[Rfam]
RNA: Hepatitis C virus stem-loop VII
RNA sequence: UAAGCUUCUGUCCAUGGGAGGAAAAGCCGCUAUAUGCGGCAGAUACCUCUUUAAUUGGGCAGUGAAGACC
Numbered sequence: 001u002a003a004g005c006u007u008c009u010g011u012c013c014a015u016g017g018g019a020g021g022a023a024a025a026g027c028c029g030c031u032a033u034a035u036g037c038g039g040c041a042g043a044u045a046c047c048u049c050u051u052u053a054a055u056u057g058g059g060c061a062g063u064g065a066a067g068a069c070c
Stems, first nucleotide, its partner, number of pairs: 006065002009062001012059002016055001017050005026040005